[Rfam]
Nucleotides: 133
Base pairs, nucleotide, nucleotide: 003061004060005059006058007057008056011053017048018047019046020045022043024040025039026038027037072127073126074125076123077122087112088111089110090109091108092107096104097103
Number, partner (000 for none) and nucleotide at each position: 001000c002000u003061u004060c005059c006058c007057c008056u009000u010000c011053c012000u013000u014000a015000g016000u017048c018047c019046a020045g021000u022043c023000a024040c025039u026038c027037u028000g029000u030000c031000c032000c033000c034000a035000g036000u037027g038026g039025a040024g041000a042000u043022g044000u045020c046019u047018g048017g049000c050000a051000u052000u053011g054000a055000c056008a057007g058006g059005g060004g061003a062000u063000a064000c065000a066000g067000c068000a069000c070000c071000a072127u073126g074125g075000c076123u077122c078000c079000c080000u081000c082000a083000c084000c085000u086000c087112u088111c089110u090109c091108a092107u093000c094000u095000a096104g097103a098000a099000c100000c101000u102000c103097u104096u105000a106000c107092a108091u109090g110089g111088g112087g113000c114000u115000u116000g117000u118000g119000a120000g121000a122077g123076a124000g125074c126073u127072g128000a129000a130000c131000a132000u133000u